[Rfam]
RNA sequence: GUUCCUCAGCCUUACUCCAGGGGCUUCUGUUUUUCAUAGAGUGCCCUGGCAUUGCCUGAGGAUAAAUUGAAAGUAUGCUCCUUUCCCUCCCCAGUAAGAUUCUCUGUAUCCUCUGGGGCCUACAAUUUGAGCACACAUU
Number, nucleotide and partner (000 for none) at each position: 001g000002u000003u062004c061005c060006u059007c058008a057009g056010c000011c054012u000013u000014a000015c000016u000017c049018c048019a047020g046021g045022g044023g042024c041025u040026u039027c000028u000029g000030u000031u000032u000033u000034u000035c000036a000037u000038a000039g026040a025041g024042u023043g000044c022045c021046c020047u019048g018049g017050c000051a000052u000053u000054g011055c000056c009057u008058g007059a006060g005061g004062a003063u000064a000065a000066a000067u000068u000069g000070a000071a000072a000073g000074u000075a000076u133077g132078c131079u000080c129081c000082u000083u000084u000085c000086c000087c000088u000089c118090c117091c116092c115093a114094g113095u000096a112097a000098g110099a109100u000101u000102c000103u000104c000105u000106g000107u000108a000109u099110c098111c000112u096113c094114u093115g092116g091117g090118g089119c000120c000121u000122a000123c000124a000125a000126u000127u000128u000129g080130a000131g078132c077133a076134c000135a000136c000137a000138u000139u000